[Rfam]
RNA sequence: ACACGCGGAAAGGAGGUGGUCCAAACAAUGGUGAUUCAUAGUUGGGCUAGCGAGGUGGUUGUCCGCUGACGACGCGGACGCCCCGUCUCGCGCCGUUCGGCGAAUACGAGGCAACCACCGGGGCCCCCGGCAGCUGGAGGGCGGGAACCCAUCCCGACCAUGGUCCAUCCAGCCCGCCUGUCCGACAGGCGGAAGCUUGCCCGGGGCCCUUUUUCA
Numbered sequence: 001a002c003a004c005g006c007g008g009a010a011a012g013g014a015g016g017u018g019g020u021c022c023a024a025a026c027a028a029u030g031g032u033g034a035u036u037c038a039u040a041g042u043u044g045g046g047c048u049a050g051c052g053a054g055g056u057g058g059u060u061g062u063c064c065g066c067u068g069a070c071g072a073c074g075c076g077g078a079c080g081c082c083c084c085g086u087c088u089c090g091c092g093c094c095g096u097u098c099g100g101c102g103a104a105u106a107c108g109a110g111g112c113a114a115c116c117a118c119c120g121g122g123g124c125c126c127c128c129g130g131c132a133g134c135u136g137g138a139g140g141g142c143g144g145g146a147a148c149c150c151a152u153c154c155c156g157a158c159c160a161u162g163g164u165c166c167a168u169c170c171a172g173c174c175c176g177c178c179u180g181u182c183c184g185a186c187a188g189g190c191g192g193a194a195g196c197u198u199g200c201c202c203g204g205g206g207c208c209c210u211u212u213u214u215c216a
Stems, first nucleotide, its partner, number of pairs: 015063006064102006073092003120210008129201004134192003
RNA: Actinobacteria sRNA Ms_IGR-5
Organism: Nonomuraea muscovyensis